This 75-nucleotide sequence from Promerops cafer belongs to the Rfam family "U1A polyadenylation inhibition element (PIE)".
Rfam 15.1 lists 510 matches to the family in 331 species.
Pairs were carried over by alignment from the consensus structure, which is taken from published work.
Its family is annotated with regulation of mRNA polyadenylation in the Gene Ontology.
The organism belongs to Promerops, within Eukaryota.
[Rfam]
RNA sequence: UUUCCCAGCAUUGUACCCAGGGUCUCUCUGCAGACAUUGCACCUGGAGCUGCCCCCACCCCAAAUAAACCCCAAA
Numbered sequence: 001u002u003u004c005c006c007a008g009c010a011u012u013g014u015a016c017c018c019a020g021g022g023u024c025u026c027u028c029u030g031c032a033g034a035c036a037u038u039g040c041a042c043c044u045g046g047a048g049c050u051g052c053c054c055c056c057a058c059c060c061c062a063a064a065u066a067a068a069c070c071c072c073a074a075a
Stems, first nucleotide, its partner, number of pairs: 006051004017046004022035004

Rfam classes the family as a cis-regulatory element.